The record is a 108-nucleotide RNA from Malurus elegans, which matches "mraW RNA" in Rfam.
A search with the family's covariance model found it, with a score of 50 bits.
The family's consensus secondary structure is taken from published work.
Taxonomically the source falls in Malurus (Eukaryota, Archelosauria, Coelurosauria, Maluridae).

[Rfam]
RNA sequence: GGAAGUGUUCAAGGCCAGGCUGGACUGGGCUUGGAGCAACCUGGGACACCUUCCACUAUCCCAGGUUGUUCCAAGCCCUGGCCAGCCUGGCCUUGGGCACAUCCAGGG
Numbered sequence: 001g002g003a004a005g006u007g008u009u010c011a012a013g014g015c016c017a018g019g020c021u022g023g024a025c026u027g028g029g030c031u032u033g034g035a036g037c038a039a040c041c042u043g044g045g046a047c048a049c050c051u052u053c054c055a056c057u058a059u060c061c062c063a064g065g066u067u068g069u070u071c072c073a074a075g076c077c078c079u080g081g082c083c084a085g086c087c088u089g090g091c092c093u094u095g096g097g098c099a100c101a102u103c104c105a106g107g108g
Base pairs, nucleotide, nucleotide: 010095011094012093013092014091015090016089018087019086021084022083023082025080027078028077029076030075031074032073033072034071035070036069037068038067039066040065041064042063043062044061045060046059